[Rfam]
The family of this 69-nucleotide RNA from Amycolatopsis sp. SID8362 is "ASpks TB sRNA". It scores 70 bits against the family's covariance model. Taxonomically the source falls in Amycolatopsis (Bacteria, Bacillati, Actinomycetes, Pseudonocardiales). The family has 77 seed sequences and 9,052 matches in Rfam 15.1. It is annotated as an antisense RNA.

RNA sequence: CUUGAUCGACCCGAGCCACAGCGGCGCCGGGCGGUCCUGCCCGUACGUGGCCAGCACCGCCUGCGCCUC
Numbered sequence: 001c002u003u004g005a006u007c008g009a010c011c012c013g014a015g016c017c018a019c020a021g022c023g024g025c026g027c028c029g030g031g032c033g034g035u036c037c038u039g040c041c042c043g044u045a046c047g048u049g050g051c052c053a054g055c056a057c058c059g060c061c062u063g064c065g066c067c068u069c
Stems, first nucleotide, its partner, number of pairs: 015025003026064002032059002037054003041050003